[Rfam]
RNA: Small nucleolar RNA SNORA8
Organism: Salvelinus namaycush
RNA sequence: AGCACUGUAUGGUAUCUGCAGCCAGCCUUCACCACGGGCUGUUCUGUUCAUAAAACAGUGCAAGAUCAACUCUGCAUAUGGCAUCGUUAGGCUUUGGGCUGGUCUGUGCCUGGCGCCCUGGUAUUUGUGCUGAGACAACA
Numbered sequence: 001a002g003c004a005c006u007g008u009a010u011g012g013u014a015u016c017u018g019c020a021g022c023c024a025g026c027c028u029u030c031a032c033c034a035c036g037g038g039c040u041g042u043u044c045u046g047u048u049c050a051u052a053a054a055a056c057a058g059u060g061c062a063a064g065a066u067c068a069a070c071u072c073u074g075c076a077u078a079u080g081g082c083a084u085c086g087u088u089a090g091g092c093u094u095u096g097g098g099c100u101g102g103u104c105u106g107u108g109c110c111u112g113g114c115g116c117c118c119u120g121g122u123a124u125u126u127g128u129g130c131u132g133a134g135a136c137a138a139c140a
Base pairs, nucleotide, nucleotide: 002061003060004059005058006057007056015054017052018047019046020045021044024040025039026038027037028036065128066127068125069124071121072120074118080110081109082108083107084106